[Rfam]
RNA sequence: GCUAAUGCUGUGAGGAAGCAAUUUAAAGGACUAGAGUUUCUGAUCCAGAAAAGGAGUUGAAGAACAACCCUUGGCUGUCUGAGCAUUAGC
Numbered sequence: 001g002c003u004a005a006u007g008c009u010g011u012g013a014g015g016a017a018g019c020a021a022u023u024u025a026a027a028g029g030a031c032u033a034g035a036g037u038u039u040c041u042g043a044u045c046c047a048g049a050a051a052a053g054g055a056g057u058u059g060a061a062g063a064a065c066a067a068c069c070c071u072u073g074g075c076u077g078u079c080u081g082a083g084c085a086u087u088a089g090c
Stems, first nucleotide, its partner, number of pairs: 001090008037062004044055003

About this RNA
Shown here is a 90-nucleotide RNA sequence from Taxus chinensis, a member of the family "Small nucleolar RNA Z157/R69/R10". Its Rfam clan is "SNORD52 clan". The source organism's lineage runs through Eukaryota, Euphyllophyta, Spermatophyta, Taxaceae and Taxus. The base pairs follow the family's consensus structure, which was predicted with PFOLD. A reference for the family is Chen et al. (2003), "The high diversity of snoRNAs in plants: identification and comparative study of 120 snoRNA genes from Oryza sativa", Nucleic Acids Res. A search with the family's covariance model found it, with a score of 71 bits.